[Rfam]
RNA sequence: GGGCUGAUGAUGAGCUGGGUGUUAUGAGCAUGAAUGAAAUGAGGCUCGAAAUGAUUACUCUGAGGUCC
Numbered sequence: 001g002g003g004c005u006g007a008u009g010a011u012g013a014g015c016u017g018g019g020u021g022u023u024a025u026g027a028g029c030a031u032g033a034a035u036g037a038a039a040u041g042a043g044g045c046u047c048g049a050a051a052u053g054a055u056u057a058c059u060c061u062g063a064g065g066u067c068c
Base pairs, nucleotide, nucleotide: 001068002067003066004065005064012060013059014058020054025048026047027046028045029044

Record summary
Small Nucleolar RNA SNORD64: a 68-nucleotide sequence from Heterocephalus glaber. Rfam describes the family as follows. The human snoRNA HBII-13 belongs to the C/D family of snoRNAs. It is expressed mainly in the brain, but is also in the lungs, the kidneys and muscle. HBII-13 snoRNA has no identified RNA target and is encoded together with HBII-436, HBII-437, HBII-438A/B and the clusters of HBII-85, HBII-52 snoRNA in a 460 kb intron of the large, paternally expressed, transcription unit (SNURF-SNRNP-UBE3A AS). It is annotated as a C/D-box small nucleolar RNA. Its Rfam clan is "SNORD74 clan".